This 392-nucleotide RNA sequence from Exophiala spinifera belongs to the Rfam family "Nuclear RNase P". The organism belongs to Exophiala, within Eukaryota. Ribonuclease P (RNase P) is a ubiquitous endoribonuclease, found in archaea, bacteria and eukarya as well as chloroplasts and mitochondria. Its best characterised activity is the generation of mature 5'-ends of tRNAs by cleaving the 5'-leader elements of precursor-tRNAs. Cellular RNase Ps are ribonucleoproteins. The family is grouped with related families in Rfam's "RNaseP clan".
RNA sequence: GCUGCGUUCUCUGCUACCAACAAUGCUCUUCUCCUGCUGAGCGGCAGUCGAGAAGAGCAUUUUCCUUGCAGAUGAGAAAUUCGGAGUAAUCUUCAAAUCAGCCUGGGGCUUGAGUCAUCUCGACUCUCGCCCUCAGGACUGCCCGCGAGGGUCCAGCACGAUUCGUGCCCACAACUGGCAUCAGAAACUUACAGGGCUCCUUGACGACCGUGUUCGACUUGUCGUCCGCGUGUCGUUCUUGGAGGAUUCCCUAUGGAAGAGCCAUUGUGAAGAUUGUAUGGCGCGUCUCCUUGAUGAGAGCGGACUUACUUUAGUGCAAUCGCAGCGGAAGUCUGCCUGUUUCGAGGAACAGGCCAGGUUUCAAUUCGAUUCCGAUUACUCUGGGGAGCGGC
Numbered sequence: 001g002c003u004g005c006g007u008u009c010u011c012u013g014c015u016a017c018c019a020a021c022a023a024u025g026c027u028c029u030u031c032u033c034c035u036g037c038u039g040a041g042c043g044g045c046a047g048u049c050g051a052g053a054a055g056a057g058c059a060u061u062u063u064c065c066u067u068g069c070a071g072a073u074g075a076g077a078a079a080u081u082c083g084g085a086g087u088a089a090u091c092u093u094c095a096a097a098u099c100a101g102c103c104u105g106g107g108g109c110u111u112g113a114g115u116c117a118u119c120u121c122g123a124c125u126c127u128c129g130c131c132c133u134c135a136g137g138a139c140u141g142c143c144c145g146c147g148a149g150g151g152u153c154c155a156g157c158a159c160g161a162u163u164c165g166u167g168c169c170c171a172c173a174a175c176u177g178g179c180a181u182c183a184g185a186a187a188c189u190u191a192c193a194g195g196g197c198u199c200c201u202u203g204a205c206g207a208c209c210g211u212g213u214u215c216g217a218c219u220u221g222u223c224g225u226c227c228g229c230g231u232g233u234c235g236u237u238c239u240u241g242g243a244g245g246a247u248u249c250c251c252u253a254u255g256g257a258a259g260a261g262c263c264a265u266u267g268u269g270a271a272g273a274u275u276g277u278a279u280g281g282c283g284c285g286u287c288u289c290c291u292u293g294a295u296g297a298g299a300g301c302g303g304a305c306u307u308a309c310u311u312u313a314g315u316g317c318a319a320u321c322g323c324a325g326c327g328g329a330a331g332u333c334u335g336c337c338u339g340u341u342u343c344g345a346g347g348a349a350c351a352g353g354c355c356a357g358g359u360u361u362c363a364a365u366u367c368g369a370u371u372c373c374g375a376u377u378a379c380u381c382u383g384g385g386g387a388g389c390g391g392c
Stems, first nucleotide, its partner, number of pairs: 001326005010072004023060011082374005091272004141152004156168004174266001176264004194252003328362007

It scores 34 bits against the family's covariance model. It is annotated as a ribozyme.